RNA sequence: CUUCAGGAUCGCUAGGGUUCCGGUCGCACGGCGGGUCAGGUCGCGCGAUGGCUGGUCCGAGAGCAAUCCGGUCUGGCCGUUCAUCCUUCUCGUCGAGGAAACGGCAAGGCUCCACGGAGGGAUAAAAGCCCGGGAGGU
Numbered sequence: 001c002u003u004c005a006g007g008a009u010c011g012c013u014a015g016g017g018u019u020c021c022g023g024u025c026g027c028a029c030g031g032c033g034g035g036u037c038a039g040g041u042c043g044c045g046c047g048a049u050g051g052c053u054g055g056u057c058c059g060a061g062a063g064c065a066a067u068c069c070g071g072u073c074u075g076g077c078c079g080u081u082c083a084u085c086c087u088u089c090u091c092g093u094c095g096a097g098g099a100a101a102c103g104g105c106a107a108g109g110c111u112c113c114a115c116g117g118a119g120g121g122a123u124a125a126a127a128g129c130c131c132g133g134g135a136g137g138u
Stems, first nucleotide, its partner, number of pairs: 007068003011064002015058002020055002022052001023049005070111005076105006113133001115136001119131003

Guanidine-I riboswitch aptamer: a 138-nucleotide sequence from Trinickia dabaoshanensis. This family represents a conserved RNA structure found upstream of the ykkC and yxkD genes in Bacillus subtilis and related genes in other bacteria. The function of this family is unclear although it has been suggested that it may function to switch on efflux pumps and detoxification systems in response to harmful environmental molecules. Rfam 15.1 lists 1,509 matches to the family in 1,281 species. NCBI's taxonomy places the organism under Bacteria, Pseudomonadati, Pseudomonadota, Betaproteobacteria, Trinickia. Its family is annotated with regulation of gene expression in the Gene Ontology.